[Rfam]
RNA sequence: UAAGACUGCCGUAGAGUGCACUUCAGCAAAAGAUUCAAGUUAGCGCGGCCGUUGUUUAUUGUUCGUUCCAUUAGGCACCACAGUCACCCAGCUUCCCUUAUUUGAUAUUUGUUGCAUUAUUAGAGCAUUCGCUCGUCACACUUAAAUAAAGGUAAGAUUUAUUAUGGCUACUGGUACCGUAAAAUGGUUUAACGAAGCAAAAGGUUUUGGUUUUAUCACUCCUGCUGAUGGCAGCAAAGAUUUGUUCGCACAUUUCUCUGAAAUCACUGGGAGUGGCUUCAAAACAUUGGCUGAAGGCCAACAGGUAUCUUACACCGCUACUGAAGGUGCUAAAGGUUCUCAAGCUUCACAAAUCGAAGCUAUCUAAUUACCCUUUGGGUAAAUAGAGACUAAAAAACCCGCUACGGCGGGUUUUUUGUUU
Numbered sequence: 001u002a003a004g005a006c007u008g009c010c011g012u013a014g015a016g017u018g019c020a021c022u023u024c025a026g027c028a029a030a031a032g033a034u035u036c037a038a039g040u041u042a043g044c045g046c047g048g049c050c051g052u053u054g055u056u057u058a059u060u061g062u063u064c065g066u067u068c069c070a071u072u073a074g075g076c077a078c079c080a081c082a083g084u085c086a087c088c089c090a091g092c093u094u095c096c097c098u099u100a101u102u103u104g105a106u107a108u109u110u111g112u113u114g115c116a117u118u119a120u121u122a123g124a125g126c127a128u129u130c131g132c133u134c135g136u137c138a139c140a141c142u143u144a145a146a147u148a149a150a151g152g153u154a155a156g157a158u159u160u161a162u163u164a165u166g167g168c169u170a171c172u173g174g175u176a177c178c179g180u181a182a183a184a185u186g187g188u189u190u191a192a193c194g195a196a197g198c199a200a201a202a203g204g205u206u207u208u209g210g211u212u213u214u215a216u217c218a219c220u221c222c223u224g225c226u227g228a229u230g231g232c233a234g235c236a237a238a239g240a241u242u243u244g245u246u247c248g249c250a251c252a253u254u255u256c257u258c259u260g261a262a263a264u265c266a267c268u269g270g271g272a273g274u275g276g277c278u279u280c281a282a283a284a285c286a287u288u289g290g291c292u293g294a295a296g297g298c299c300a301a302c303a304g305g306u307a308u309c310u311u312a313c314a315c316c317g318c319u320a321c322u323g324a325a326g327g328u329g330c331u332a333a334a335g336g337u338u339c340u341c342a343a344g345c346u347u348c349a350c351a352a353a354u355c356g357a358a359g360c361u362a363u364c365u366a367a368u369u370a371c372c373c374u375u376u377g378g379g380u381a382a383a384u385a386g387a388g389a390c391u392a393a394a395a396a397a398c399c400c401g402c403u404a405c406g407g408c409g410g411g412u413u414u415u416u417u418g419u420u421u
Base pairs, nucleotide, nucleotide: 005017006016007015025223026222028220038214039213042212043211044210046209049204050203056202057201063199065198066197067196069194071192072191074190075189077188078187079186095152096151098149099148100147101146124133125132126131159174160173161172163170226320227319229317230316231315239247240246250308252306253305254304255303259300260299264290265289266288268286271285274283325340326339327338329337330336331335343361344360345359346358347357348356364386365385366384369381370380371379372378391418392417393416394415395414396413397412398411399410400409401408402407